[Rfam]
A member of the RNA family "SAM riboswitch aptamer (S box leader)" from Bacillus sp. FJAT-27916, 119 nucleotides long.
RNA sequence: AUCUUAUCGCGAGAGACGGAGGGACGGGCCCGAUGAUGUCUCAGCAACCGCCGAUGCAUUCGGAAAGGUGCUAAAUCCUGCAAGGCAUAUGCAUAUUUAUGUGCCUCGAGAGAUAAGAA
Numbered sequence: 001a002u003c004u005u006a007u008c009g010c011g012a013g014a015g016a017c018g019g020a021g022g023g024a025c026g027g028g029c030c031c032g033a034u035g036a037u038g039u040c041u042c043a044g045c046a047a048c049c050g051c052c053g054a055u056g057c058a059u060u061c062g063g064a065a066a067g068g069u070g071c072u073a074a075a076u077c078c079u080g081c082a083a084g085g086c087a088u089a090u091g092c093a094u095a096u097u098u099a100u101g102u103g104c105c106u107c108g109a110g111a112g113a114u115a116a117g118a119a
Stems, first nucleotide, its partner, number of pairs: 002118007013042005021031003025080004043072004048068002051063003076111001081108001083106009

Rfam's curators write: The SAM riboswitch is found upstream of a number of genes which code for proteins involved in methionine or cysteine biosynthesis in Gram-positive bacteria. The SAM riboswitch acts at the level of transcription termination control. The predicted structure consists of a complex stem-loop region followed by a single stem loop terminator region.